[Rfam]
RNA sequence: CUUCCUGAGGGGCGCUGCGACGGGGCUGGGAUUGGGCCGACAGGCUUUUCAGUAACACCCGCUAGGCUCAGGAUCAUCUUUUGUUUCAACGGCGCUCAUCAUUU
Numbered sequence: 001c002u003u004c005c006u007g008a009g010g011g012g013c014g015c016u017g018c019g020a021c022g023g024g025g026c027u028g029g030g031a032u033u034g035g036g037c038c039g040a041c042a043g044g045c046u047u048u049u050c051a052g053u054a055a056c057a058c059c060c061g062c063u064a065g066g067c068u069c070a071g072g073a074u075c076a077u078c079u080u081u082u083g084u085u086u087c088a089a090c091g092g093c094g095c096u097c098a099u100c101a102u103u104u
Stems, first nucleotide, its partner, number of pairs: 003073006021061004
RNA: SAH (S-adenosyl-L-homocysteine) riboswitch aptamer